The record is a 199-nucleotide sequence from Cohnella endophytica, which matches "FMN riboswitch aptamer (RFN element)" in Rfam.
Taxonomically the source falls in Cohnella (Bacteria, Bacillati, Bacillota, Paenibacillaceae).
RNA sequence: GCUUACCUUCGGGGCGGGGCGUAAUUCCCCACCGGCGGUGAUCGGCACGAUGAACCAACGGCGAGCGAAUUGCCGAUGCGUUCGCGGCCGUCAGUCCGUGACCCGUAAUUGCUGCUACCGGUUAACCGGCGAGCGUAAUUCGGUGGACCUGGUGCGAAUCCGGGACCGACAGUUAAAGUCUGGAUGGGAGAAGGAAGCA
Number, nucleotide and partner (000 for none) at each position: 001g000002c000003u197004u196005a000006c194007c193008u192009u191010c190011g000012g000013g000014g000015c000016g000017g029018g028019g027020c000021g000022u000023a000024a000025u000026u000027c019028c018029c017030c000031a179032c178033c168034g167035g099036c098037g097038g096039u000040g000041a000042u000043c000044g000045g000046c000047a000048c000049g000050a000051u000052g000053a000054a000055c000056c000057a000058a000059c000060g000061g000062c000063g000064a000065g000066c000067g000068a000069a000070u000071u000072g000073c000074c000075g000076a000077u000078g000079c000080g000081u000082u000083c000084g000085c000086g000087g000088c000089c000090g000091u000092c000093a000094g000095u000096c038097c037098g036099u035100g000101a000102c000103c143104c142105g000106u000107a000108a000109u000110u000111g000112c000113u000114g000115c000116u000117a000118c000119c000120g000121g000122u000123u000124a000125a000126c000127c000128g000129g000130c000131g000132a000133g000134c000135g000136u000137a000138a000139u000140u000141c000142g104143g103144u000145g000146g000147a000148c164149c163150u162151g161152g160153u000154g000155c000156g000157a000158a000159u000160c152161c151162g150163g149164g148165a000166c000167c034168g033169a000170c182171a181172g180173u000174u000175a000176a000177a000178g032179u031180c172181u171182g170183g000184a000185u000186g000187g000188g000189a000190g010191a009192a008193g007194g006195a000196a004197g003198c000199a000
Background:
Rfam links the family to the GO term FMN binding.